[Rfam]
RNA sequence: GGCGCAUACCGCGGGAGCCCGCGCGAGCCGUCAGACGGCCGCCGGGCUGAGAGGGCGUCAGAGCCGACCGCUUGACCUGAUCCGGCUAGUACCGGCGUAGGGAAGGAACCCCAUGGACAUA
Numbered sequence: 001g002g003c004g005c006a007u008a009c010c011g012c013g014g015g016a017g018c019c020c021g022c023g024c025g026a027g028c029c030g031u032c033a034g035a036c037g038g039c040c041g042c043c044g045g046g047c048u049g050a051g052a053g054g055g056c057g058u059c060a061g062a063g064c065c066g067a068c069c070g071c072u073u074g075a076c077c078u079g080a081u082c083c084g085g086c087u088a089g090u091a092c093c094g095g096c097g098u099a100g101g102g103a104a105g106g107a108a109c110c111c112c113a114u115g116g117a118c119a120u121a
Stems, first nucleotide, its partner, number of pairs: 007108001009106002011071004017047005054065003076101004082095004
TPP riboswitch aptamer (THI element): a 121-nucleotide RNA sequence from Arthrobacter sp. C9C5.
The base pairs follow the family's consensus structure, which is taken from published work.
It scores 56 bits against the family's covariance model.
Rfam describes the family as follows. Vitamin B(1) in its active form thiamin pyrophosphate (TPP) is an essential coenzyme that is synthesised by coupling of pyrimidine and thiazole moieties in bacteria.
Lineage of the source: Bacteria > Actinomycetota > Actinomycetes > Micrococcales > Arthrobacter.